Rfam assigns this 60-nucleotide RNA sequence from Rhinopithecus roxellana to the family "Ma3 gene ribosomal frameshift signal". Gene Ontology term of the family: translational frameshifting. Rfam classes the family as a frameshift element. Rfam 15.1 lists 565 matches to the family in 155 species. The family's consensus secondary structure is taken from published work. The organism belongs to Rhinopithecus, within Eukaryota.
RNA sequence: GGGAAACGAGGCAGGGGUUGGGGCCACGAGCCAUCCCAAGCCCUGGGAAACAUAGGCUCA
Numbered sequence: 001g002g003g004a005a006a007c008g009a010g011g012c013a014g015g016g017g018u019u020g021g022g023g024c025c026a027c028g029a030g031c032c033a034u035c036c037c038a039a040g041c042c043c044u045g046g047g048a049a050a051c052a053u054a055g056g057c058u059c060a
Stems, first nucleotide, its partner, number of pairs: 014044006021037003028059005